[Rfam]
RNA sequence: AUUGGUACUAGGUAACCAGAACAGGCUAUGAGCUGAAUGCACUGGUCACUCUGUACCAUGGUUCCUGGGAAUGUCUGAGACUAGGGCCAGAGGCACCCUUAACAGGGCCCUCCCUGAGUUUUGGGGACGUGAGUUCCCAGAGAACAAGGCUUAACAUGAGGGCAGACUGGGUAGGAGAAGCCGUGCACUCCACCCUCUGGAGGGGCCCUGUGGAUGCUUCCUUAACUGGAGCUUAGAACAGAAUUCAAUGGCUGAGAUGAGAUACCUACAUAGGGGCCUCAUAACCCUAUUCAGACUACUGUCCCCAAU
Numbered sequence: 001a002u003u004g005g006u007a008c009u010a011g012g013u014a015a016c017c018a019g020a021a022c023a024g025g026c027u028a029u030g031a032g033c034u035g036a037a038u039g040c041a042c043u044g045g046u047c048a049c050u051c052u053g054u055a056c057c058a059u060g061g062u063u064c065c066u067g068g069g070a071a072u073g074u075c076u077g078a079g080a081c082u083a084g085g086g087c088c089a090g091a092g093g094c095a096c097c098c099u100u101a102a103c104a105g106g107g108c109c110c111u112c113c114c115u116g117a118g119u120u121u122u123g124g125g126g127a128c129g130u131g132a133g134u135u136c137c138c139a140g141a142g143a144a145c146a147a148g149g150c151u152u153a154a155c156a157u158g159a160g161g162g163c164a165g166a167c168u169g170g171g172u173a174g175g176a177g178a179a180g181c182c183g184u185g186c187a188c189u190c191c192a193c194c195c196u197c198u199g200g201a202g203g204g205g206c207c208c209u210g211u212g213g214a215u216g217c218u219u220c221c222u223u224a225a226c227u228g229g230a231g232c233u234u235a236g237a238a239c240a241g242a243a244u245u246c247a248a249u250g251g252c253u254g255a256g257a258u259g260a261g262a263u264a265c266c267u268a269c270a271u272a273g274g275g276g277c278c279u280c281a282u283a284a285c286c287c288u289a290u291u292c293a294g295a296c297u298a299c300u301g302u303c304c305c306c307a308a309u
Base pairs, nucleotide, nucleotide: 001309002308003307004306007302008301013255023066024065025064035051036050038048039047040045075294076293077292078291079290085253086252087251088250097107098106099105111127112126113125114124115123130247131246132245133244134243135242149232150231151230257282258281259280260279261278263276
Dot-bracket structure: ((((..((....[.........(((.........((.(((....).)).))............)))........(((((.....((((........(((.....)))...(((((.......)))))..((((((.............(((..............................................................................))).........))))))..)))).].(((((.(............).))))).......)))))......))...))))